[Rfam]
RNA: small nucleolar RNA snoR114
RNA sequence: GAGCAAUGAUGAAAGCCGAGCCUUGGCGAUGGUAGGGUCCAUCGCAAUCAACUGAUCACCAGAUGACAUGUGGCUCUGCUGAGCUC
Number, nucleotide and partner (000 for none) at each position: 001g086002a085003g084004c083005a000006a000007u000008g000009a000010u000011g000012a000013a000014a000015g000016c000017c000018g000019a000020g000021c000022c000023u000024u000025g000026g000027c000028g000029a000030u000031g000032g000033u000034a000035g000036g000037g000038u000039c000040c000041a000042u000043c000044g000045c000046a000047a000048u000049c000050a000051a000052c000053u000054g000055a000056u000057c000058a000059c000060c000061a000062g000063a000064u000065g000066a000067c000068a000069u000070g000071u000072g000073g000074c000075u000076c000077u000078g000079c000080u000081g000082a000083g004084c003085u002086c001